[Rfam]
RNA sequence: AGGUGAUGUCUCCUUACCUUUAUCAAUGGAGGCACUCGGCUAUGCUGUGGGUGUAAAAGCCUUAGACACGUUUGUUGUCAGUGGUAUGGUGUGAGGUGGGGUUGGAUGCCCU
Numbered sequence: 001a002g003g004u005g006a007u008g009u010c011u012c013c014u015u016a017c018c019u020u021u022a023u024c025a026a027u028g029g030a031g032g033c034a035c036u037c038g039g040c041u042a043u044g045c046u047g048u049g050g051g052u053g054u055a056a057a058a059g060c061c062u063u064a065g066a067c068a069c070g071u072u073u074g075u076u077g078u079c080a081g082u083g084g085u086a087u088g089g090u091g092u093g094a095g096g097u098g099g100g101g102u103u104g105g106a107u108g109c110c111c112u
Stems, first nucleotide, its partner, number of pairs: 001019004007034007035095004039090008049062004065079004098112005

Rfam assigns this 112-nucleotide RNA sequence from Sutcliffiella cohnii to the family "epsC RNA". The base pairs follow the family's consensus structure, which is taken from published work. The family's RNA type in Rfam is cis-regulatory element. Taxonomically the source falls in Sutcliffiella (Bacteria, Bacillati, Bacillota, Caryophanales). Rfam 15.1 lists 450 matches to the family in 334 species.